[Rfam]
RNA sequence: CAAGAGUUAGUCAAUGCGAUUACUCCCCAGAUGGAAUAUCGGAAUACUGAUGAAGA
Numbered sequence: 001c002a003a004g005a006g007u008u009a010g011u012c013a014a015u016g017c018g019a020u021u022a023c024u025c026c027c028c029a030g031a032u033g034g035a036a037u038a039u040c041g042g043a044a045u046a047c048u049g050a051u052g053a054a055g056a
Stems, first nucleotide, its partner, number of pairs: 006051006017041004024035003

Shown here is a 56-nucleotide RNA, a member of the family "Transposase-1 RNA".